[Rfam]
A member of the RNA family "mir-5928 microRNA precursor family" from Haemonchus placei, 75 nucleotides long. Lineage of the source: Eukaryota > Opisthokonta > Strongyloidea > Trichostrongylidae > Haemonchus. It scores 68 bits against the family's covariance model. Gene Ontology terms of the family: miRNA-mediated post-transcriptional gene silencing and RISC complex. The family's consensus secondary structure was predicted with RNAalifold.
RNA sequence: GGCACAAACAUGAAGAAGAGCAGAUUACUAAGAUCAGCUGAUCAUACUAAUCUACUCUACUUCAAAUUUGGGCCC
Numbered sequence: 001g002g003c004a005c006a007a008a009c010a011u012g013a014a015g016a017a018g019a020g021c022a023g024a025u026u027a028c029u030a031a032g033a034u035c036a037g038c039u040g041a042u043c044a045u046a047c048u049a050a051u052c053u054a055c056u057c058u059a060c061u062u063c064a065a066a067u068u069u070g071g072g073c074c075c
Stems, first nucleotide, its partner, number of pairs: 001074003005070004011064005017058004022053002025050003029046002032043004